[Rfam]
RNA sequence: CGACCUCAGAUCAGGCGAGACAACCCGCUGAAUUUAAGCAUAUCACUAAGCGGAGGAAAAGAAACCAACAGGGAUUCCCCGAGUAGCUGCGAGCGAAACGGGACCGAGCCCAGCACCGAAUCCCCCGUCCUUGCAGGCGGUCGGGAAAUGUGGUGUAUGGGAGGCGACGUUCUCGGGUGUUUGCGACGGUGCAAGUCCCCCUGACAGGGGCUUGUCCCAGAGUGGGUGCCAGGCCCGUCUCCGCCGUUGCGCGCCCGGGAUGGAGCCUCCCGUGAGUCGGGUUGCUUGAGAGUGCAGCCCUAAGUGGGUGGUAAACUCCAUCUAAGGCUAAAUACGACCGAGAGACCGAUAGUUCACAAGUACCGUGAGGGAAAGUUGAAAAGAACUUUGAAGAGAGAGUUCAAGAGUACGUGAAACCGCUUAGAGUAAAA
Numbered sequence: 001c002g003a004c005c006u007c008a009g010a011u012c013a014g015g016c017g018a019g020a021c022a023a024c025c026c027g028c029u030g031a032a033u034u035u036a037a038g039c040a041u042a043u044c045a046c047u048a049a050g051c052g053g054a055g056g057a058a059a060a061g062a063a064a065c066c067a068a069c070a071g072g073g074a075u076u077c078c079c080c081g082a083g084u085a086g087c088u089g090c091g092a093g094c095g096a097a098a099c100g101g102g103a104c105c106g107a108g109c110c111c112a113g114c115a116c117c118g119a120a121u122c123c124c125c126c127g128u129c130c131u132u133g134c135a136g137g138c139g140g141u142c143g144g145g146a147a148a149u150g151u152g153g154u155g156u157a158u159g160g161g162a163g164g165c166g167a168c169g170u171u172c173u174c175g176g177g178u179g180u181u182u183g184c185g186a187c188g189g190u191g192c193a194a195g196u197c198c199c200c201c202u203g204a205c206a207g208g209g210g211c212u213u214g215u216c217c218c219a220g221a222g223u224g225g226g227u228g229c230c231a232g233g234c235c236c237g238u239c240u241c242c243g244c245c246g247u248u249g250c251g252c253g254c255c256c257g258g259g260a261u262g263g264a265g266c267c268u269c270c271c272g273u274g275a276g277u278c279g280g281g282u283u284g285c286u287u288g289a290g291a292g293u294g295c296a297g298c299c300c301u302a303a304g305u306g307g308g309u310g311g312u313a314a315a316c317u318c319c320a321u322c323u324a325a326g327g328c329u330a331a332a333u334a335c336g337a338c339c340g341a342g343a344g345a346c347c348g349a350u351a352g353u354u355c356a357c358a359a360g361u362a363c364c365g366u367g368a369g370g371g372a373a374a375g376u377u378g379a380a381a382a383g384a385a386c387u388u389u390g391a392a393g394a395g396a397g398a399g400u401u402c403a404a405g406a407g408u409a410c411g412u413g414a415a416a417c418c419g420c421u422u423a424g425a426g427u428a429a430a431a
Base pairs, nucleotide, nucleotide: 024055025053026052027051028050029049035042036041065072066071076103077102078101079100086094087093107329108328109327110326114155115154116153117152118151120149121148124145125144126143127142129140160270161269162268163267164266165265171264172263174257175256176255177254178253179252180251185248186247187246188245189244190243191242195211197210198209199208200207218222225235226234279300280299281298282297283296284295285294306323307322308321309320310319363370364369386397387396388395389394